RNA: mir-5928 microRNA precursor family
RNA sequence: GGCACAAACUUGAAGUAGAGUAGAUUAGUAUGGUCGGCUAAUCCUACAUAUUUACUUUACUGCGAAUUUGGGCCC
Dot-bracket structure: (((.((((..((.((((((((((.(..(((.(((......))).)))..).)))))))))).))..)))).))).